[Rfam]
RNA sequence: UAAAGCCUAUGAAGAGUUGCAGAAUUAUUGCUUACAUCGUCUGAAAUUAAACGUGAUAAAAAUCUGCAAGCUUUCUGAGGCAAUA
Numbered sequence: 001u002a003a004a005g006c007c008u009a010u011g012a013a014g015a016g017u018u019g020c021a022g023a024a025u026u027a028u029u030g031c032u033u034a035c036a037u038c039g040u041c042u043g044a045a046a047u048u049a050a051a052c053g054u055g056a057u058a059a060a061a062a063u064c065u066g067c068a069a070g071c072u073u074u075c076u077g078a079g080g081c082a083a084u085a
Base pairs, nucleotide, nucleotide: 001085002084005081006080007079

The record is an 85-nucleotide sequence from Ananas comosus, which matches "Small nucleolar RNA SNORD34" in Rfam.
Rfam describes the family as follows. snoRNA U34 is found in intron 5 of the ribosomal protein L13a gene in humans.
On this family, see Galardi et al., Mol Cell Biol 2002: "Purified box C/D snoRNPs are able to reproduce site-specific 2'-O-methylation of target RNA in vitro".
The family is grouped with related families in Rfam's "SNORD34 clan".
The base pairs follow the family's consensus structure, which was predicted with PFOLD.